[Rfam]
RNA: Glycine riboswitch aptamer
RNA sequence: AUGAUGGUUGUGGGAGAGGUCCAUAUUUGGGCGCCGAAGGAGCAAACCAAUUUCUUGCUGAGGAGAUUGGCAAAACUCUCAGGCAAAAGGACUGCGGCCGGACG
Numbered sequence: 001a002u003g004a005u006g007g008u009u010g011u012g013g014g015a016g017a018g019g020u021c022c023a024u025a026u027u028u029g030g031g032c033g034c035c036g037a038a039g040g041a042g043c044a045a046a047c048c049a050a051u052u053u054c055u056u057g058c059u060g061a062g063g064a065g066a067u068u069g070g071c072a073a074a075a076c077u078c079u080c081a082g083g084c085a086a087a088a089g090g091a092c093u094g095c096g097g098c099c100g101g102a103c104g
Stems, first nucleotide, its partner, number of pairs: 006099008020031004033084003036080002040078003047070008